[Rfam]
RNA sequence: UCAGACGACUUUAUGUGUAGCUUAGUUUGUCGAUAUGAGGCAUAAUGCCCUACAACGUAGCGGUGUCACAUCAUUGAGAAGUCUAAUUUUUAAGACUAGCGUUCUCAAUCAUGCGACACUUUAAUCGCUAUCCCAUAUUUAAUUAGGGAAUGGGACUCUUCACCGAGGUUGUAAAAUGAGACAAACGAUUUUAGCUGUAU
Numbered sequence: 001u002c003a004g005a006c007g008a009c010u011u012u013a014u015g016u017g018u019a020g021c022u023u024a025g026u027u028u029g030u031c032g033a034u035a036u037g038a039g040g041c042a043u044a045a046u047g048c049c050c051u052a053c054a055a056c057g058u059a060g061c062g063g064u065g066u067c068a069c070a071u072c073a074u075u076g077a078g079a080a081g082u083c084u085a086a087u088u089u090u091u092a093a094g095a096c097u098a099g100c101g102u103u104c105u106c107a108a109u110c111a112u113g114c115g116a117c118a119c120u121u122u123a124a125u126c127g128c129u130a131u132c133c134c135a136u137a138u139u140u141a142a143u144u145a146g147g148g149a150a151u152g153g154g155a156c157u158c159u160u161c162a163c164c165g166a167g168g169u170u171g172u173a174a175a176a177u178g179a180g181a182c183a184a185a186c187g188a189u190u191u192u193a194g195c196u197g198u199a200u
Stems, first nucleotide, its partner, number of pairs: 015200008025186007039049004051173006058130005063119005069113003073109007080097005131155006138149003156167003